[Rfam]
RNA sequence: CAUUUAUGGGGUUAAACUGUACGUUGUAUGUGCAAAUCUUAAGAAAUCCAUAAGCGUAUAGCUUUUCCCCUUAAAAG
Numbered sequence: 001c002a003u004u005u006a007u008g009g010g011g012u013u014a015a016a017c018u019g020u021a022c023g024u025u026g027u028a029u030g031u032g033c034a035a036a037u038c039u040u041a042a043g044a045a046a047u048c049c050a051u052a053a054g055c056g057u058a059u060a061g062c063u064u065u066u067c068c069c070c071u072u073a074a075a076a077g
Stems, first nucleotide, its partner, number of pairs: 003075004009069003014064001017061005024054002027052004
About this RNA: mir-965 microRNA precursor family: a 77-nucleotide RNA sequence from Drosophila willistoni. The family has 16 seed sequences and 224 matches in Rfam 15.1. Pairs were carried over by alignment from the consensus structure, which was predicted with RNAalifold. Rfam links the family to the GO terms RISC complex and miRNA-mediated post-transcriptional gene silencing. A reference for the family is Huang et al. (2012), "The regulation of silkworm fibroin L chain production by miRNA-965 and miRNA-1926 in insect cells", Bioorg Khim. The source organism's lineage runs through Eukaryota, Ecdysozoa, Dicondylia, Ephydroidea and Sophophora.